RNA: 7SK RNA
Organism: Baryphthengus martii
RNA sequence: GGAUGUGAGUGCAAUCUGACUGUGACAUCUGUUACCCCACUGUUCUCAAGGGUUAAUUCAGCUGAUCUGGCUGGCUAGGCGGGUGUCCCCUCACCUCUCCACAUGAGUCCCUCCUGAAACUGCACGCUUGGUUGAAGAGGGUGACGUUCCCUGAUAGAGGCCAUCCAUUGGUGAAGGGUAUAUGCCAGAUGCGCUCCCCUGCUAGAACUUCCAAACAAGUUCAAAGUCCAUUUGCAGGAGAAUGUAGGGUAGUCAAACUUUCAAAACCACAAACACAUCCAAGUGAGGCACUGCAUGGGGCACUCCACCAUUAUU
Numbered sequence: 001g002g003a004u005g006u007g008a009g010u011g012c013a014a015u016c017u018g019a020c021u022g023u024g025a026c027a028u029c030u031g032u033u034a035c036c037c038c039a040c041u042g043u044u045c046u047c048a049a050g051g052g053u054u055a056a057u058u059c060a061g062c063u064g065a066u067c068u069g070g071c072u073g074g075c076u077a078g079g080c081g082g083g084u085g086u087c088c089c090c091u092c093a094c095c096u097c098u099c100c101a102c103a104u105g106a107g108u109c110c111c112u113c114c115u116g117a118a119a120c121u122g123c124a125c126g127c128u129u130g131g132u133u134g135a136a137g138a139g140g141g142u143g144a145c146g147u148u149c150c151c152u153g154a155u156a157g158a159g160g161c162c163a164u165c166c167a168u169u170g171g172u173g174a175a176g177g178g179u180a181u182a183u184g185c186c187a188g189a190u191g192c193g194c195u196c197c198c199c200u201g202c203u204a205g206a207a208c209u210u211c212c213a214a215a216c217a218a219g220u221u222c223a224a225a226g227u228c229c230a231u232u233u234g235c236a237g238g239a240g241a242a243u244g245u246a247g248g249g250u251a252g253u254c255a256a257a258c259u260u261u262c263a264a265a266a267c268c269a270c271a272a273a274c275a276c277a278u279c280c281a282a283g284u285g286a287g288g289c290a291c292u293g294c295a296u297g298g299g300g301c302a303c304u305c306c307a308c309c310a311u312u313a314u315u
Base pairs, nucleotide, nucleotide: 001100002099003098005094006093007092018090024087025086026085027084028083029082030081031080032079033078035074036073037070038069039068042067044065045064047061108163110160111159112158113157114131115130116129117128120126132154133153134152139150140149141148188258190256194252195251197249198248199247200246201245202244209240210239211238212237216234217233218232219231282315283314285311287309288308290304292302293301294300